[Rfam]
RNA: Histone 3' UTR stem-loop
RNA sequence: CCAACGGCUCUUUUCAGAGCCACCCAUUUGUUCAAACUAGAGCCUG
Dot-bracket structure: .....((((((....)))))).........................
Numbered sequence: 001c002c003a004a005c006g007g008c009u010c011u012u013u014u015c016a017g018a019g020c021c022a023c024c025c026a027u028u029u030g031u032u033c034a035a036a037c038u039a040g041a042g043c044c045u046g
Stems, first nucleotide, its partner, number of pairs: 006021006